[Rfam]
The family of this 91-nucleotide RNA sequence from Dromaius novaehollandiae is "Small nucleolar RNA U83B".

RNA sequence: ACUGUUUAGUGACAGGCACAGAGCAAGCACCGAGCGCGGUGUCUGACACCUGUGAGGGGUGGCUCCAUGUUGCCAUCCUUCUGAGAACAGC
Numbered sequence: 001a002c003u004g005u006u007u008a009g010u011g012a013c014a015g016g017c018a019c020a021g022a023g024c025a026a027g028c029a030c031c032g033a034g035c036g037c038g039g040u041g042u043c044u045g046a047c048a049c050c051u052g053u054g055a056g057g058g059g060u061g062g063c064u065c066c067a068u069g070u071u072g073c074c075a076u077c078c079u080u081c082u083g084a085g086a087a088c089a090g091c
Base pairs, nucleotide, nucleotide: 002090003089004088005087
The match comes from Rfam's covariance-model search (52 bits). U83B belongs to the C/D family of snoRNAs. U83B like U83A has no documented RNA target and they share the same host gene with the C/D box snoRNA U43 (RPL3). For this family Rfam cites "Characterisation of the U83 and U84 small nucleolar RNAs: two novel 2'-O-ribose methylation guide RNAs that lack complementarities to ribosomal RNAs" (Jady and Kiss, Nucleic Acids Res, 2000). Lineage of the source: Eukaryota > Sarcopterygii > Sauria > Casuariiformes > Dromaius.